[Rfam]
RNA: MIR477 microRNA precursor family
RNA sequence: GAAGUUCCAAUCUCCCUCAAAGGCUUCCAAUAUUCCAGGCUAUGAUAAGAUUAUCUUACAUGGGAAUGUUGGAAGUCUUUGAAGGGGACUGGAGGCUU
Numbered sequence: 001g002a003a004g005u006u007c008c009a010a011u012c013u014c015c016c017u018c019a020a021a022g023g024c025u026u027c028c029a030a031u032a033u034u035c036c037a038g039g040c041u042a043u044g045a046u047a048a049g050a051u052u053a054u055c056u057u058a059c060a061u062g063g064g065a066a067u068g069u070u071g072g073a074a075g076u077c078u079u080u081g082a083a084g085g086g087g088a089c090u091g092g093a094g095g096c097u098u
Base pairs, nucleotide, nucleotide: 003097004096005095006094007092008091009090011088012087013086014085015084017082018081020079021078022077023076024075025074026073027072028071029070030069031068032067